[Rfam]
RNA sequence: UGGUCUGCGGUGAUGAAGAAACAGUUUAGACUAGAGUUUCUGAUCUUCGCUUCGAAGGUUGAAGACAAAACCCUUGGCUGUCUGAGCACACCC
Dot-bracket structure: .(((.(((............................((((....(((((...)))))...)))).....................))).))).
Shown here is a 93-nucleotide RNA from Cuscuta campestris, a member of the family "Small nucleolar RNA Z157/R69/R10".
Clan: SNORD52 clan.
Its family is annotated with RNA processing and nucleolus in the Gene Ontology.
It is annotated as a C/D-box small nucleolar RNA.
The organism belongs to Cuscuta sect. Cleistogrammica, within Eukaryota.